[Rfam]
RNA: Caenorhabditis snoRNA ceN59
RNA sequence: CUCGAACAGUUUGAGUUGAUUCGCUCGCCGUGAAGAGCUGAGUCAAAUUACUGUUCGGAAAUUGAAGAGAAGGCCACUCGUCGUAGUGUUUUCUAACAUCUAGAAUUCACAAGUCGUGGUCUUCCCACAGUU
Numbered sequence: 001c002u003c004g005a006a007c008a009g010u011u012u013g014a015g016u017u018g019a020u021u022c023g024c025u026c027g028c029c030g031u032g033a034a035g036a037g038c039u040g041a042g043u044c045a046a047a048u049u050a051c052u053g054u055u056c057g058g059a060a061a062u063u064g065a066a067g068a069g070a071a072g073g074c075c076a077c078u079c080g081u082c083g084u085a086g087u088g089u090u091u092u093c094u095a096a097c098a099u100c101u102a103g104a105a106u107u108c109a110c111a112a113g114u115c116g117u118g119g120u121c122u123u124c125c126c127a128c129a130g131u132u
Base pairs, nucleotide, nucleotide: 003057004056005055006054007053008052009051010050016046017045018044019043020042021041022040023038024037025036026035069124070123072122073120074119075118